[Rfam]
The record is a 101-nucleotide sequence from Paenibacillus lycopersici, which matches "Purine riboswitch aptamer" in Rfam. Rfam links the family to the GO term purine nucleobase biosynthetic process. The family's consensus secondary structure is taken from published work. Rfam's curators write: Riboswitches are metabolite binding domains within certain messenger RNAs that serve as precision sensors for their corresponding targets. Its Rfam clan is "Purine riboswitches".
RNA sequence: AGAUUUUGUCGAAACGCAUCUCGUAUAUCCUUGGGGAUGAGGCCCGAGAGUAUCUACCCGAGAACCUUAAUUUUCGGACUACGAGACGAUGCCGCGAAGAG
Numbered sequence: 001a002g003a004u005u006u007u008g009u010c011g012a013a014a015c016g017c018a019u020c021u022c023g024u025a026u027a028u029c030c031u032u033g034g035g036g037a038u039g040a041g042g043c044c045c046g047a048g049a050g051u052a053u054c055u056a057c058c059c060g061a062g063a064a065c066c067u068u069a070a071u072u073u074u075c076g077g078a079c080u081a082c083g084a085g086a087c088g089a090u091g092c093c094g095c096g097a098a099g100a101g
Stems, first nucleotide, its partner, number of pairs: 019086007030048006058077007